[Rfam]
RNA: CRISPR RNA direct repeat element
RNA sequence: GUUGCACCCGGCCUUCGGGCUGGGUGAGGAUUGAAAC
Numbered sequence: 001g002u003u004g005c006a007c008c009c010g011g012c013c014u015u016c017g018g019g020c021u022g023g024g025u026g027a028g029g030a031u032u033g034a035a036a037c
Base pairs, nucleotide, nucleotide: 005026006025007024008023009022010021011020012019013018